Rfam assigns this 73-nucleotide RNA from Drosophila navojoa to the family "mir-3 microRNA precursor family". Clan: mir-3 clan. A reference for the family is Aravin et al. (2003), "The small RNA profile during Drosophila melanogaster development", Dev Cell.
RNA sequence: CUUUUGGGAUGCAUUUUGUGCAGUUAUGUCUAACGAUUGGAAACCCAUCACUGGGCAAAGUGUGUCUCAAAAU
Number, nucleotide and partner (000 for none) at each position: 001c000002u000003u000004u000005u069006g068007g067008g066009a065010u064011g063012c062013a061014u060015u000016u000017u057018g056019u055020g000021c053022a052023g051024u050025u000026a000027u000028g000029u000030c000031u000032a000033a000034c000035g000036a000037u000038u000039g000040g000041a000042a000043a000044c000045c000046c000047a000048u000049c000050a024051c023052u022053g021054g000055g019056c018057a017058a000059a000060g014061u013062g012063u011064g010065u009066c008067u007068c006069a005070a000071a000072a000073u000